[Rfam]
RNA: c-di-GMP-I riboswitch aptamer
Organism: Lederbergia lenta
RNA sequence: GGAAGUUAAAGGCAAACUACUCCGAAAGGGUAGGACGCAAAGCCUAGAGUCUAAGGUUUGGGAUCGGGUCAACAGUCCUGCAAUCUAAACAAUGAUAACCUGGUUGCCAAA
Numbered sequence: 001g002g003a004a005g006u007u008a009a010a011g012g013c014a015a016a017c018u019a020c021u022c023c024g025a026a027a028g029g030g031u032a033g034g035a036c037g038c039a040a041a042g043c044c045u046a047g048a049g050u051c052u053a054a055g056g057u058u059u060g061g062g063a064u065c066g067g068g069u070c071a072a073c074a075g076u077c078c079u080g081c082a083a084u085c086u087a088a089a090c091a092a093u094g095a096u097a098a099c100c101u102g103g104u105u106g107c108c109a110a111a
Stems, first nucleotide, its partner, number of pairs: 012038002017033004022029002041105004046101002049096003056090007
Dot-bracket structure: ...........((...((((.((....))))))...))..((((.((.(((....(((((((.....................)))))))...)))...))))))......